[Rfam]
This 95-nucleotide RNA sequence from Gemmata obscuriglobus belongs to the Rfam family "c-di-GMP-I riboswitch aptamer". Rfam's curators write: GEMM was predicted in a large-scale screen for bacterial structured RNA regulatory elements.
RNA sequence: UCCUCGAAAGGGCUAACCCGCUGCGAAGCGGGGGCGCAAAGCCACGGGCCUGCGGUCUCCCCACCACACCGACCGCAGGUCGCCUGGUUGCCGAA
Dot-bracket structure: ...........((...((((((....))))))...))..((((..(((((..(((((.............)))))..)))..)).))))......